RNA sequence: GGACGCUCUGGAAAGCGGUUGAUCGCCGCGGCCUGCCCUGGACAGGCCCGCCCGGUCACCCCACCGACGAAGUAAGCCGGCCAUUGCGACGCCGGUGAAUCUUUCAGGUCCUGAGACAGAGGGGGGCAU
Numbered sequence: 001g002g003a004c005g006c007u008c009u010g011g012a013a014a015g016c017g018g019u020u021g022a023u024c025g026c027c028g029c030g031g032c033c034u035g036c037c038c039u040g041g042a043c044a045g046g047c048c049c050g051c052c053c054g055g056u057c058a059c060c061c062c063a064c065c066g067a068c069g070a071a072g073u074a075a076g077c078c079g080g081c082c083a084u085u086g087c088g089a090c091g092c093c094g095g096u097g098a099a100u101c102u103u104u105c106a107g108g109u110c111c112u113g114a115g116a117c118a119g120a121g122g123g124g125g126g127c128a129u
Stems, first nucleotide, its partner, number of pairs: 004123001006121005017061002020058006063109003066105002070103003076096006
Source information: A member of the RNA family "Glycine riboswitch aptamer" from Caenispirillum bisanense, 129 nucleotides long. Gene Ontology term of the family: glycine biosynthetic process.